[Rfam]
A member of the RNA family "Purine riboswitch aptamer" from Paenibacillus swuensis, 101 nucleotides long. Lineage of the source: Bacteria > Bacillati > Bacillota > Caryophanales > Paenibacillus. Rfam's curators write: Riboswitches are metabolite binding domains within certain messenger RNAs that serve as precision sensors for their corresponding targets.
RNA sequence: UUGAAUAUCACUCAUUCUUUUCGUAUAACCCUGACAAUACGGGUCGGGGGUCUCUACAAGGAACCCUAACAUUCCUGGCUACGAAGGUAGAUUUAGUCUAC
Numbered sequence: 001u002u003g004a005a006u007a008u009c010a011c012u013c014a015u016u017c018u019u020u021u022c023g024u025a026u027a028a029c030c031c032u033g034a035c036a037a038u039a040c041g042g043g044u045c046g047g048g049g050g051u052c053u054c055u056a057c058a059a060g061g062a063a064c065c066c067u068a069a070c071a072u073u074c075c076u077g078g079c080u081a082c083g084a085a086g087g088u089a090g091a092u093u094u095a096g097u098c099u100a101c
Base pairs, nucleotide, nucleotide: 018087019086020085021084022083023082024081025080029049030048031047032046033045034044035043059076060075061074062073063072